[Rfam]
RNA sequence: UCGAAGUAACCCGUAGAUCCGAACUUGUGUAGACUAAAAACAAUCGCAAGUUUGCUUCUGCAGGUCCCUUUUGG
Numbered sequence: 001u002c003g004a005a006g007u008a009a010c011c012c013g014u015a016g017a018u019c020c021g022a023a024c025u026u027g028u029g030u031a032g033a034c035u036a037a038a039a040a041c042a043a044u045c046g047c048a049a050g051u052u053u054g055c056u057u058c059u060g061c062a063g064g065u066c067c068c069u070u071u072u073g074g
Base pairs, nucleotide, nucleotide: 003071004070005069006068010064011063015059016058017057020054021053022052023051024050025049026048027047028046029045
RNA: mir-10 microRNA precursor family
Organism: Brassicogethes aeneus